[Rfam]
The family of this 100-nucleotide RNA from Vibrio maritimus is "Purine riboswitch aptamer".
The organism belongs to Vibrio, within Bacteria.
The match comes from Rfam's covariance-model search (67 bits).
Pairs were carried over by alignment from the consensus structure, which is taken from published work.

RNA sequence: UUGGUAAAGUCCCCGCAGCUUCGUAUAACCCCAAUAAUACGGUUUGGGGGUCUCUACCAGUUCCCGAAAAGUGCUGAUUACGAAGAGUUAGGAUGGCAUU
Numbered sequence: 001u002u003g004g005u006a007a008a009g010u011c012c013c014c015g016c017a018g019c020u021u022c023g024u025a026u027a028a029c030c031c032c033a034a035u036a037a038u039a040c041g042g043u044u045u046g047g048g049g050g051u052c053u054c055u056a057c058c059a060g061u062u063c064c065c066g067a068a069a070a071g072u073g074c075u076g077a078u079u080a081c082g083a084a085g086a087g088u089u090a091g092g093a094u095g096g097c098a099u100u
Base pairs, nucleotide, nucleotide: 019085020084021083022082023081024080025079029049030048031047032046033045034044058076059075060074061073063071